The family of this 130-nucleotide RNA from Streptomyces albireticuli is "Streptomyces RNA 5676". The family's RNA type in Rfam is small RNA. The pairing is the family consensus, mapped onto this sequence. Lineage of the source: Bacteria > Actinomycetota > Actinomycetes > Streptomycetaceae > Streptomyces. For this family Rfam cites "Deep sequencing-based identification of small non-coding RNAs in Streptomyces coelicolor" (Vockenhuber et al., RNA Biol, 2011). Identified by deep sequencing of transcriptome at the end of exponential growth phase. Appears longer on northern blot than sequencing transcript. This indicates processing step. Streptomyces specific.

RNA sequence: AGAUGAACGCAACACCCCGUCCGCAGGAGACUGCGGACACCGCCGCGCCGGCGCUUCCCCAGCUCCGGUCCGGCCGUGCCUUCGCGCACACCACUGGAGCCUCCGGCUCCGGACAUCCUCACCGAUCGGA
Numbered sequence: 001a002g003a004u005g006a007a008c009g010c011a012a013c014a015c016c017c018c019g020u021c022c023g024c025a026g027g028a029g030a031c032u033g034c035g036g037a038c039a040c041c042g043c044c045g046c047g048c049c050g051g052c053g054c055u056u057c058c059c060c061a062g063c064u065c066c067g068g069u070c071c072g073g074c075c076g077u078g079c080c081u082u083c084g085c086g087c088a089c090a091c092c093a094c095u096g097g098a099g100c101c102u103c104c105g106g107c108u109c110c111g112g113a114c115a116u117c118c119u120c121a122c123c124g125a126u127c128g129g130a
Stems, first nucleotide, its partner, number of pairs: 004121003009117001019038008042074004047069001049067003053063002076089004094112008122129002